Rfam assigns this 162-nucleotide RNA sequence from Azospirillum thermophilum to the family "FMN riboswitch aptamer (RFN element)". Gene Ontology term of the family: FMN binding.
[Rfam]
RNA sequence: GCUUGUUCUCAGGGCAGGGUGGAAAUCCCGACCGGCGGUAUCUCCUCGGCGACGAGGGGGAGCCCGCGAGCGCCCGCCGAUCCCUUCCGGGGCCGGCGGGGUCAAGCAGACCCGGUGAGAGGCCGGGGCCGACGGUUACAGUCCGGAUGGAAGAGGACGAGC
Numbered sequence: 001g002c003u004u005g006u007u008c009u010c011a012g013g014g015c016a017g018g019g020u021g022g023a024a025a026u027c028c029c030g031a032c033c034g035g036c037g038g039u040a041u042c043u044c045c046u047c048g049g050c051g052a053c054g055a056g057g058g059g060g061a062g063c064c065c066g067c068g069a070g071c072g073c074c075c076g077c078c079g080a081u082c083c084c085u086u087c088c089g090g091g092g093c094c095g096g097c098g099g100g101g102u103c104a105a106g107c108a109g110a111c112c113c114g115g116u117g118a119g120a121g122g123c124c125g126g127g128g129c130c131g132a133c134g135g136u137u138a139c140a141g142u143c144c145g146g147a148u149g150g151a152a153g154a155g156g157a158c159g160a161g162c
Base pairs, nucleotide, nucleotide: 003160004159005158006157007156008155009154010153017029018028019027031142032141033131034130035067036066037065038064062129063128070107071106111127112126113125114124115123133145134144135143